[Rfam]
RNA sequence: AUGAUCGUGAGUGACUUCGCACAUCCGCCGGCACGGGUGGCCGGGUGCCCGUAUGCGGUUGCCCCCCGGGGCGGAUGGAGGCUUAAC
Numbered sequence: 001a002u003g004a005u006c007g008u009g010a011g012u013g014a015c016u017u018c019g020c021a022c023a024u025c026c027g028c029c030g031g032c033a034c035g036g037g038u039g040g041c042c043g044g045g046u047g048c049c050c051g052u053a054u055g056c057g058g059u060u061g062c063c064c065c066c067c068g069g070g071g072c073g074g075a076u077g078g079a080g081g082c083u084u085a086a087c
Stems, first nucleotide, its partner, number of pairs: 022077008034068004039063003047059003
RNA: t44 RNA
Organism: Candidatus Competibacter denitrificans